[Rfam]
Record summary: Shown here is a 74-nucleotide RNA from Loktanella salsilacus, a member of the family "Singlet oxygen resistance RNA X". On this family, see Peng et al., RNA Biol 2016: "Regulation of a polyamine transporter by the conserved 3' UTR-derived sRNA SorX confers resistance to singlet oxygen and organic hydroperoxides in Rhodobacter sphaeroides". The match comes from Rfam's covariance-model search (49 bits). Rfam links the family to the GO term response to photooxidative stress. Rfam describes the family as follows. SorX (RSs2461)like SorY is a singlet oxygen induced sRNA that counteracts oxidative stress by targeting mRNA for a transporter in Rhodobacter. It also has an impact on resistance against organic hydroperoxides. The pairing is the family consensus, mapped onto this sequence. It is annotated as a small RNA.
RNA sequence: UUCCAAUGUCCCCCGGGGGCACUGGGCGACUCCUCCCUGUCAGACUUGCCGCGCCUUCGGGCGCGGCGUUUUUU
Numbered sequence: 001u002u003c004c005a006a007u008g009u010c011c012c013c014c015g016g017g018g019g020c021a022c023u024g025g026g027c028g029a030c031u032c033c034u035c036c037c038u039g040u041c042a043g044a045c046u047u048g049c050c051g052c053g054c055c056u057u058c059g060g061g062c063g064c065g066g067c068g069u070u071u072u073u074u
Stems, first nucleotide, its partner, number of pairs: 008030003012026003047068008